[Rfam]
RNA: MIR397 microRNA precursor family
RNA sequence: AACAAAUACAUCAUUGAGUGCAGCGUUGAUUGGAUUUGAAUGAACUGCUCUGAUGAUUAUUCUGCAAUUAACUGUCAAGGCUGCACUCAAUAAUGCGUUUG
Numbered sequence: 001a002a003c004a005a006a007u008a009c010a011u012c013a014u015u016g017a018g019u020g021c022a023g024c025g026u027u028g029a030u031u032g033g034a035u036u037u038g039a040a041u042g043a044a045c046u047g048c049u050c051u052g053a054u055g056a057u058u059a060u061u062c063u064g065c066a067a068u069u070a071a072c073u074g075u076c077a078a079g080g081c082u083g084c085a086c087u088c089a090a091u092a093a094u095g096c097g098u099u100u101g
Base pairs, nucleotide, nucleotide: 006098007097009095010094011093013091014090015089016088017087018086019085020084021083022082023081024080026078027077028076030074032072